[Rfam]
RNA sequence: UAGGGUGAAUGUGCAGUUGCAAGGCGCAAUCGCGUUUUGAGGAAAGUCCGGACACCAAGGAAAAAUAGUGCUGGUUAACGGCCAGCCAGGGCUUUAGCUCUGAGGGAAAGUGCAACAGAAAGUAUACCGCCAUAAAGUUUUUUUAUUUUUUGGUAAGGGUGAAAAGGUGCGGUAAGAGCGCACCGGGAAUCUGGCGACAGAUUUUGCAUUGCAAACCCCACUAGGUGCAAGACCAAAUAGGCGCAGCUAUUAUAGUAAUUUUCCUACUAAUUACCUCUUGAAGACGUAAGGGCCGCGCGGGUAGGUCGCUUGAGAUGAGUAGUGAUACUUGUCCUAGAUGAAUAACUGCACCUAUGCUGCUCACAAAAGGUUCUUUUUAAUCUUUUUGUUGUUGCAGUCGUGCUCAAAUCCUCAAAUACUAUUAAAGUAUUCUUCGGUUUUCUGCGCGCCUGCGCCUAAAAAAUUUCUAAAAAUAACCAUUUGUGAGUAGCAUAGUUACAGAAUCCGGCUUACGGUUCACCCUUGAUA
Numbered sequence: 001u002a003g004g005g006u007g008a009a010u011g012u013g014c015a016g017u018u019g020c021a022a023g024g025c026g027c028a029a030u031c032g033c034g035u036u037u038u039g040a041g042g043a044a045a046g047u048c049c050g051g052a053c054a055c056c057a058a059g060g061a062a063a064a065a066u067a068g069u070g071c072u073g074g075u076u077a078a079c080g081g082c083c084a085g086c087c088a089g090g091g092c093u094u095u096a097g098c099u100c101u102g103a104g105g106g107a108a109a110g111u112g113c114a115a116c117a118g119a120a121a122g123u124a125u126a127c128c129g130c131c132a133u134a135a136a137g138u139u140u141u142u143u144u145a146u147u148u149u150u151u152g153g154u155a156a157g158g159g160u161g162a163a164a165a166g167g168u169g170c171g172g173u174a175a176g177a178g179c180g181c182a183c184c185g186g187g188a189a190u191c192u193g194g195c196g197a198c199a200g201a202u203u204u205u206g207c208a209u210u211g212c213a214a215a216c217c218c219c220a221c222u223a224g225g226u227g228c229a230a231g232a233c234c235a236a237a238u239a240g241g242c243g244c245a246g247c248u249a250u251u252a253u254a255g256u257a258a259u260u261u262u263c264c265u266a267c268u269a270a271u272u273a274c275c276u277c278u279u280g281a282a283g284a285c286g287u288a289a290g291g292g293c294c295g296c297g298c299g300g301g302u303a304g305g306u307c308g309c310u311u312g313a314g315a316u317g318a319g320u321a322g323u324g325a326u327a328c329u330u331g332u333c334c335u336a337g338a339u340g341a342a343u344a345a346c347u348g349c350a351c352c353u354a355u356g357c358u359g360c361u362c363a364c365a366a367a368a369g370g371u372u373c374u375u376u377u378u379a380a381u382c383u384u385u386u387u388g389u390u391g392u393u394g395c396a397g398u399c400g401u402g403c404u405c406a407a408a409u410c411c412u413c414a415a416a417u418a419c420u421a422u423u424a425a426a427g428u429a430u431u432c433u434u435c436g437g438u439u440u441u442c443u444g445c446g447c448g449c450c451u452g453c454g455c456c457u458a459a460a461a462a463a464u465u466u467c468u469a470a471a472a473a474u475a476a477c478c479a480u481u482u483g484u485g486a487g488u489a490g491c492a493u494a495g496u497u498a499c500a501g502a503a504u505c506c507g508g509c510u511u512a513c514g515g516u517u518c519a520c521c522c523u524u525g526a527u528a
Stems, first nucleotide, its partner, number of pairs: 002523009011513001012350007020039008044511003048508005053227004066223005071085005086104001087102006105218002110216002112212003127158002129154004134149004166184006185207001186205008231307004241298004246293001277291003281287001314333008
This 528-nucleotide RNA sequence from Candidatus Phycorickettsia trachydisci belongs to the Rfam family "Bacterial RNase P class A". The source organism's lineage runs through Bacteria, Alphaproteobacteria, Rickettsiales, Rickettsiaceae and Candidatus Phycorickettsia.